Small nucleolar RNA snoR111: a 127-nucleotide RNA sequence from Dichanthelium oligosanthes. Rfam 15.1 lists 533 matches to the family in 223 species. It is annotated as an H/ACA-box small nucleolar RNA. Pairs were carried over by alignment from the consensus structure, which was predicted with WAR.
[Rfam]
RNA sequence: GUACCGGCGGGGGCACGAACUCUUCCGUGCGGCGCCGCCCACGAAAGGAGGGGAUACAUCGACGCGUCAAGAAAUCGUUUCAGUUGCCAUGACUCCAGUAGGCAAUAUGAUUGUUGCUUGACUACAG
Numbered sequence: 001g002u003a004c005c006g007g008c009g010g011g012g013g014c015a016c017g018a019a020c021u022c023u024u025c026c027g028u029g030c031g032g033c034g035c036c037g038c039c040c041a042c043g044a045a046a047g048g049a050g051g052g053g054a055u056a057c058a059u060c061g062a063c064g065c066g067u068c069a070a071g072a073a074a075u076c077g078u079u080u081c082a083g084u085u086g087c088c089a090u091g092a093c094u095c096c097a098g099u100a101g102g103c104a105a106u107a108u109g110a111u112u113g114u115u116g117c118u119u120g121a122c123u124a125c126a127g
Base pairs, nucleotide, nucleotide: 001035002034004032005031006030008027009026010025011024012023013022066122068120069119070118071117074111075110076109077108083106084105085104086103087102088101